[Rfam]
The record is a 126-nucleotide sequence from Schistocephalus solidus, which matches "Small nucleolar RNA SNORA79" in Rfam. A search with the family's covariance model found it, with a score of 55 bits. Its family is annotated with RNA processing and nucleolus in the Gene Ontology. The base pairs follow the family's consensus structure, which was predicted with RNAalifold. The organism belongs to Schistocephalus, within Eukaryota. The literature on the family includes a 2006 paper in RNA by Schattner et al., "A computational screen for mammalian pseudouridylation guide H/ACA RNAs". About the family: ACA65 (SNORA79) is a member of the H/ACA class of snoRNAs that guide the sites of modification of uridines to pseudouridines. This snoRNA was identified by computational screening and its expression in mouse experimentally verified by Northern blot and primer extension analysis. Rfam classes the family as an H/ACA-box small nucleolar RNA.

RNA sequence: UGAUGUCAGUUCCGCGUGCAGUGAGAGUUGAACUUGCACGUUUUUAAUGACAUCAGAUACAAACACUGCUACUUUUCACUGGCAUUUGCCUCGCUUGUAAUUGCCCUUUUGCGGUAGCAGACACUU
Numbered sequence: 001u002g003a004u005g006u007c008a009g010u011u012c013c014g015c016g017u018g019c020a021g022u023g024a025g026a027g028u029u030g031a032a033c034u035u036g037c038a039c040g041u042u043u044u045u046a047a048u049g050a051c052a053u054c055a056g057a058u059a060c061a062a063a064c065a066c067u068g069c070u071a072c073u074u075u076u077c078a079c080u081g082g083c084a085u086u087u088g089c090c091u092c093g094c095u096u097g098u099a100a101u102u103g104c105c106c107u108u109u110u111g112c113g114g115u116a117g118c119a120g121a122c123a124c125u126u
Base pairs, nucleotide, nucleotide: 001055002054003053004052005051006050007049008048014041015040016039017038018037020034021033022032068118069117070116071115072114073113081105082104083103084102086100087099088098